[Rfam]
Rfam assigns this 307-nucleotide RNA sequence from Arabis alpina to the family "Plant signal recognition particle RNA". A search with the family's covariance model found it, with a score of 255 bits. On this family, see Wild et al., Curr Opin Struct Biol 2002: "Towards the structure of the mammalian signal recognition particle". Clan: SRP clan.
RNA sequence: GUCGAGCCUAGUAACGUUGGCUUGUGAUCCAAGUGGAGACAAUAAAGUGAUGGAACGUUGGGUUGAUCUCAUUGGGCUGGGUUCGGGUUGGGCUGUUAUUUGGCUCGCCCAUUCCAAGUUGGGAGUUGAGACAAGGGGCUUGAGCGAAGGUUCGGGUCACUUGUCUUCUAGAGUGGAGGAGACUGCGUGAGGCUGGUUUCACAGAGCAGCGUCCACCUCCCGCUCUUGACGGUGGAAGGAUAACGAGCCAUGGUCUUCCGAGCCCGCUAUGACUUGAUAAGCCAAUUCCAAUUGGACCAUCACUUUU
Number, nucleotide and partner (000 for none) at each position: 001g040002u039003c038004g023005a022006g021007c020008c019009u000010a017011g000012u000013a000014a000015c000016g000017u010018u000019g008020g007021c006022u005023u004024g000025u000026g000027a000028u037029c036030c035031a000032a000033g000034u000035g030036g029037a028038g003039a002040c001041a000042a000043u000044a306045a305046a304047g303048u302049g301050a300051u299052g298053g297054a000055a000056c294057g293058u291059u290060g289061g287062g286063u285064u284065g283066a000067u000068c281069u280070c000071a278072u277073u276074g000075g274076g273077c000078u271079g265080g264081g263082u262083u261084c260085g259086g258087g000088u000089u000090g256091g255092g254093c000094u253095g000096u000097u000098a000099u000100u000101u250102g249103g248104c247105u246106c245107g244108c000109c239110c238111a000112u237113u236114c235115c234116a233117a000118g230119u229120u228121g227122g226123g225124a224125g223126u222127u000128g167129a166130g165131a164132c163133a162134a161135g160136g000137g158138g157139c156140u155141u154142g153143a152144g151145c150146g000147a000148a000149g000150g145151u144152u143153c142154g141155g140156g139157u138158c137159a000160c135161u134162u133163g132164u131165c130166u129167u128168c173169u000170a000171g000172a000173g168174u000175g220176g219177a218178g217179g216180a000181g000182a000183c000184u000185g212186c211187g210188u209189g000190a000191g000192g000193c204194u203195g202196g000197u000198u000199u000200c000201a000202c195203a194204g193205a000206g000207c000208a000209g188210c187211g186212u185213c000214c000215a000216c179217c178218u177219c176220c175221c000222g126223c125224u124225c123226u122227u121228g120229a119230c118231g000232g000233u116234g115235g114236a113237a112238g110239g109240a000241u000242a000243a000244c107245g106246a105247g104248c103249c102250a101251u000252g000253g094254u092255c091256u090257u000258c086259c085260g084261a083262g082263c081264c080265c079266g000267c000268u000269a000270u000271g078272a000273c076274u075275u000276g073277a072278u071279a000280a069281g068282c000283c065284a064285a063286u062287u061288c000289c060290a059291a058292u000293u057294g056295g000296a000297c053298c052299a051300u050301c049302a048303c047304u046305u045306u044307u000